Shown here is an 88-nucleotide RNA from Potentilla stolonifera, a member of the family "Plastid-psbA-1 3UTR RNA".
The base pairs follow the family's consensus structure, which was predicted with LocARNA.
Rfam's curators write: Plastid psbA-1 is a non-coding RNA (ncRNA) present in plastids. It was identified in inverted repeat sequences in the 3 prime untranslate region (3UTR) of photosystem II quinone-binding protein (psbA).
Clan: Plastid-psbA 3UTR RNA clan.
It is one of the family's seed sequences.
RNA sequence: UUACUAUUAUUUUUUACUAUAUAGUAAAAUAGUAAAGGAGCAACACCAAACUUCUUGAUAUAACAAGAAAUUUAGUAUUGCUCCUUUA
Numbered sequence: 001u002u003a004c005u006a007u008u009a010u011u012u013u014u015u016a017c018u019a020u021a022u023a024g025u026a027a028a029a030u031a032g033u034a035a036a037g038g039a040g041c042a043a044c045a046c047c048a049a050a051c052u053u054c055u056u057g058a059u060a061u062a063a064c065a066a067g068a069a070a071u072u073u074a075g076u077a078u079u080g081c082u083c084c085u086u087u088a
Stems, first nucleotide, its partner, number of pairs: 034087010045076002048073003052069005